[Rfam]
RNA sequence: AUGGCCGAUGCCAAGCUGCCCGAUGCGCAGUCGGGUUACGAAAAGGGCAUCACCGACGUCAUGGCGGGCCUCGCCGGGCUCAACAUGGUCUAUGAAUCCG
Numbered sequence: 001a002u003g004g005c006c007g008a009u010g011c012c013a014a015g016c017u018g019c020c021c022g023a024u025g026c027g028c029a030g031u032c033g034g035g036u037u038a039c040g041a042a043a044a045g046g047g048c049a050u051c052a053c054c055g056a057c058g059u060c061a062u063g064g065c066g067g068g069c070c071u072c073g074c075c076g077g078g079c080u081c082a083a084c085a086u087g088g089u090c091u092a093u094g095a096a097u098c099c100g
Stems, first nucleotide, its partner, number of pairs: 003012001025032001033062001035060001077098001080095001
The family of this 100-nucleotide RNA sequence from Pelagibius litoralis is "Pyrrolysine insertion sequence mttB". Its family is annotated with pyrrolysine incorporation in the Gene Ontology. Taxonomically the source falls in Pelagibius (Bacteria, Pseudomonadati, Alphaproteobacteria, Rhodovibrionaceae). The match comes from Rfam's covariance-model search (68 bits). Pairs were carried over by alignment from the consensus structure, which was predicted with CMfinder.